The record is a 176-nucleotide RNA sequence from Desmospora activa, which matches "6S / SsrS RNA" in Rfam. Lineage of the source: Bacteria > Bacilli > Caryophanales > Desmospora > Desmospora activa.

RNA sequence: AGAGCCCUGCGAUGUCCGUGGUUGGCCGACAGUUUUGAGCCAACACCUUACCAACGGGAGCCUGAAGUCAACCAUGCGCGCGAAUGCCCUAGACGGGACUCGUAACCAUGGUUGCAGGGCACCCACCUGCCGAGAGCAGGUUCAAAACUCAGGUGACACGGCAUAAUGGGGCUCGC
Dot-bracket structure: .((((((((..((((.(((............(.(.((((((..............(((.((((......(((((((.....((...((.......))..)).....)))))))...)))).)))..............))))))..).)........)))))))..))))))))..